[Rfam]
RNA sequence: AUGCAUUUUUUAAAACUCCCUGGUUGUUUUUUGUGACAUCCAGGACAAAAAAUAAUGCAAAAUUAAGCAAUCCAGAGAAUUUUCAAAGUGUUUGGCAUCCUUGCUUCUCACUAUUUCACAUCUCUGACAUCU
Number, nucleotide and partner (000 for none) at each position: 001a000002u000003g058004c057005a056006u055007u000008u051009u050010u049011u048012a000013a000014a000015a000016c000017u045018c000019c044020c043021u042022g041023g040024u000025u038026g037027u036028u000029u000030u000031u000032u000033g000034u000035g000036a027037c026038a025039u000040c023041c022042a021043g020044g019045a017046c000047a000048a011049a010050a009051a008052a000053u000054a000055a006056u005057g004058c003059a000060a000061a000062a000063u000064u000065a000066a132067g131068c000069a000070a000071u000072c000073c126074a125075g124076a123077g122078a121079a000080u000081u000082u000083u000084c000085a000086a000087a112088g111089u110090g109091u000092u000093u000094g000095g104096c103097a102098u000099c000100c000101u000102u097103g096104c095105u000106u000107c000108u000109c090110a089111c088112u087113a000114u000115u000116u000117c000118a000119c000120a000121u078122c077123u076124c075125u074126g073127a000128c000129a000130u000131c067132u066
RNA: Small nucleolar RNA SNORA14
Organism: Callorhinchus milii